[Rfam]
RNA sequence: AGAUCCUUCUAAGCCGAGGAUCAUCUAGCCAAACUGACGUUGUUAGUGAAUUUUAAAAUUGUUCACAUUGAUGGCCAAUUGCUUACUUGCAAUUGGCUUUUUUAUU
Numbered sequence: 001a002g003a004u005c006c007u008u009c010u011a012a013g014c015c016g017a018g019g020a021u022c023a024u025c026u027a028g029c030c031a032a033a034c035u036g037a038c039g040u041u042g043u044u045a046g047u048g049a050a051u052u053u054u055a056a057a058a059u060u061g062u063u064c065a066c067a068u069u070g071a072u073g074g075c076c077a078a079u080u081g082c083u084u085a086c087u088u089g090c091a092a093u094u095g096g097c098u099u100u101u102u103u104a105u106u
Stems, first nucleotide, its partner, number of pairs: 002022005040074004046066006075096008